[Rfam]
RNA sequence: ACACGAAAGAUAAUCGCUGCAGUAAUGUAGAGGAAAGUCCAUGCUCGCACCGCCUGUGAUGGUGGUAGUGUUUGUGUCUGAUGAAACCAUAAGUCAGAGCAUAGAGGCAUCUAUGACGGCAGAUCGAAGUCCUAAGGGAAACUAUGGAUAACGACUUGAAAGUGCCACAGUGACGAAGUCUCUAUCGAAAGGUAGAGAGUGGAACGAGGUAAACCCCAUAAGCGAGAAACCCAAAAUUGGUAGGGGAGCUUGUUGGAGCAAAUCGAAGCAACAACAAGACGCGUAAGCGUAGAUAAAUGAUUAUCAUUAACAGAACAUGGCUUAUUG
Numbered sequence: 001a002c003a004c005g006a007a008a009g010a011u012a013a014u015c016g017c018u019g020c021a022g023u024a025a026u027g028u029a030g031a032g033g034a035a036a037g038u039c040c041a042u043g044c045u046c047g048c049a050c051c052g053c054c055u056g057u058g059a060u061g062g063u064g065g066u067a068g069u070g071u072u073u074g075u076g077u078c079u080g081a082u083g084a085a086a087c088c089a090u091a092a093g094u095c096a097g098a099g100c101a102u103a104g105a106g107g108c109a110u111c112u113a114u115g116a117c118g119g120c121a122g123a124u125c126g127a128a129g130u131c132c133u134a135a136g137g138g139a140a141a142c143u144a145u146g147g148a149u150a151a152c153g154a155c156u157u158g159a160a161a162g163u164g165c166c167a168c169a170g171u172g173a174c175g176a177a178g179u180c181u182c183u184a185u186c187g188a189a190a191g192g193u194a195g196a197g198a199g200u201g202g203a204a205c206g207a208g209g210u211a212a213a214c215c216c217c218a219u220a221a222g223c224g225a226g227a228a229a230c231c232c233a234a235a236a237u238u239g240g241u242a243g244g245g246g247a248g249c250u251u252g253u254u255g256g257a258g259c260a261a262a263u264c265g266a267a268g269c270a271a272c273a274a275c276a277a278g279a280c281g282c283g284u285a286a287g288c289g290u291a292g293a294u295a296a297a298u299g300a301u302u303a304u305c306a307u308u309a310a311c312a313g314a315a316c317a318u319g320g321c322u323u324a325u326u327g
Stems, first nucleotide, its partner, number of pairs: 008325001009305007017030005035323003039320005044226005049066006072221005077098006099117001100115006118216002121156002129149004136143002162214002164210003179198008230245003249278007279290004
Background
The family of this 327-nucleotide RNA from Erysipelothrix sp. HDW6A is "Bacterial RNase P class B". From the family's description: Ribonuclease P (RNase P) is a ubiquitous endoribonuclease, found in archaea, bacteria and eukarya as well as chloroplasts and mitochondria. Its best characterised activity is the generation of mature 5'-ends of tRNAs by cleaving the 5'-leader elements of precursor-tRNAs. Cellular RNase Ps are ribonucleoproteins. RNA from bacterial RNase Ps retains its catalytic activity in the absence of the protein subunit, i.e. it is a ribozyme. The organism belongs to Erysipelothrix, within Bacteria. The family's consensus secondary structure is taken from published work. The family's RNA type in Rfam is ribozyme.